[Rfam]
RNA sequence: CCUCAGGCUUCCUGGGACACUAACAGAGCAACUGCGCCCGGGGAGAGUGCGCCGAGCUCCCUAAAGGGCUGCAGCGCAUGGCGGGGCCUGGGAGCAGCU
Number, nucleotide and partner (000 for none) at each position: 001c000002c000003u000004c000005a000006g000007g095008c094009u093010u092011c091012c090013u000014g088015g087016g000017a000018c084019a000020c081021u080022a079023a000024c000025a000026g000027a000028g077029c076030a000031a000032c074033u073034g072035c071036g069037c068038c067039c066040g062041g061042g060043g059044a058045g057046a000047g000048u054049g053050c000051g000052c000053c049054g048055a000056g000057c045058u044059c043060c042061c041062u040063a000064a000065a000066g039067g038068g037069c036070u000071g035072c034073a033074g032075c000076g029077c028078a000079u022080g021081g020082c000083g000084g018085g000086g000087c015088c014089u000090g012091g011092g010093a009094g008095c007096a000097g000098c000099u000

Background:
The record is a 99-nucleotide RNA from Canis lupus, which matches "mir-8904 microRNA precursor family" in Rfam. NCBI's taxonomy places the organism under Eukaryota, Chordata, Craniata, Teleostomi, Canis lupus. The base pairs follow the family's consensus structure, which was predicted with RNAalifold.